[Rfam]
Annotation:
The family of this 128-nucleotide sequence from Pan troglodytes is "Small nucleolar RNA SNORA40". Gene Ontology terms of the family: nucleolus and RNA processing. It scores 118 bits against the family's covariance model. NCBI's taxonomy places the organism under Eukaryota, Vertebrata, Theria, Hominidae, Pan.
RNA sequence: UGUAUACUACACUGUUUUUGUUUAACUUGUGGACAAAGACUUAUGGUUAGGUGCAAAAAAUAAAUCCUCUUUUGCAACCCAGAACUCAUUGUUCAGUAUGAGUUUUGAUACAUAUAAGAAGGUGUUGC
Numbered sequence: 001u002g003u004a005u006a007c008u009a010c011a012c013u014g015u016u017u018u019u020g021u022u023u024a025a026c027u028u029g030u031g032g033a034c035a036a037a038g039a040c041u042u043a044u045g046g047u048u049a050g051g052u053g054c055a056a057a058a059a060a061u062a063a064a065u066c067c068u069c070u071u072u073u074g075c076a077a078c079c080c081a082g083a084a085c086u087c088a089u090u091g092u093u094c095a096g097u098a099u100g101a102g103u104u105u106u107g108a109u110a111c112a113u114a115u116a117a118g119a120a121g122g123u124g125u126u127g128c
Base pairs, nucleotide, nucleotide: 001055002054003053004052005051009047014040015039016038017037018036019035020034021033026031064125065124067122068121070119071118072117073116074115080107081106082105083104084103085102086101087100088099089098

The snoRNA ACA 40 belongs to the H/ACA family of snoRNAs and guides the pseudouridylation of 28S rRNA subunit at position U4565. NB This family has a high threshold value to exclude a large number of closely related sequences that do not appear to have conserved H and ACA boxes, and may be pseudogenes. The family's consensus secondary structure was predicted with RNAalifold.